[Rfam]
RNA: Small nucleolar RNA SNORD102
RNA sequence: AGUUUGAUAAUGAUUGUCUUAUAUGAGUAAAAUGAAAACAAUUUUACUGGCUCUGAAAGCU
Numbered sequence: 001a002g003u004u005u006g007a008u009a010a011u012g013a014u015u016g017u018c019u020u021a022u023a024u025g026a027g028u029a030a031a032a033u034g035a036a037a038a039c040a041a042u043u044u045u046a047c048u049g050g051c052u053c054u055g056a057a058a059g060c061u
Base pairs, nucleotide, nucleotide: 001061002060003059004058005057